Source information:
A member of the RNA family "terC RNA" from Paracoccus tibetensis, 59 nucleotides long. NCBI's taxonomy places the organism under Bacteria, Pseudomonadota, Alphaproteobacteria, Paracoccaceae, Paracoccus.
[Rfam]
RNA sequence: GCUGGUGACCGGGCCCCUCUGGUGGAAGUGGCGGCGCUUCCGCGAUGUCGGCACCCCCC
Numbered sequence: 001g002c003u004g005g006u007g008a009c010c011g012g013g014c015c016c017c018u019c020u021g022g023u024g025g026a027a028g029u030g031g032c033g034g035c036g037c038u039u040c041c042g043c044g045a046u047g048u049c050g051g052c053a054c055c056c057c058c059c
Stems, first nucleotide, its partner, number of pairs: 006053002009051004022043008

It is annotated as a cis-regulatory element.